Source information:
A member of the RNA family "Small nucleolar RNA SNORA57" from Salvelinus namaycush, 126 nucleotides long. U99 belongs to the H/ACA class of snoRNAs which are thought to guide the sites of modification of uridines to pseudouridines, the target for this family is unknown. The organism belongs to Salvelinus, within Eukaryota. The match comes from Rfam's covariance-model search (64 bits). A reference for the family is Vitali et al. (2003), "Identification of 13 novel human modification guide RNAs", Nucleic Acids Res.
RNA sequence: CCUCUAUUCUUGGCAUGCACACUGUUUCCUUGUGUGUGUUAUGGAGGAACAAAAUGCCCAGUGCUAUGUCUACAGUACCAGAAUGUUUCUCGUUUUCUGGUUCUAUCCUCAAUCACUGGUACGCUA
Numbered sequence: 001c002c003u004c005u006a007u008u009c010u011u012g013g014c015a016u017g018c019a020c021a022c023u024g025u026u027u028c029c030u031u032g033u034g035u036g037u038g039u040u041a042u043g044g045a046g047g048a049a050c051a052a053a054a055u056g057c058c059c060a061g062u063g064c065u066a067u068g069u070c071u072a073c074a075g076u077a078c079c080a081g082a083a084u085g086u087u088u089c090u091c092g093u094u095u096u097c098u099g100g101u102u103c104u105a106u107c108c109u110c111a112a113u114c115a116c117u118g119g120u121a122c123g124c125u126a
Base pairs, nucleotide, nucleotide: 001047002046003045004044005043014038015037016036017035018034019033021031059118060117061116062115063114078100079099080098081097082096083095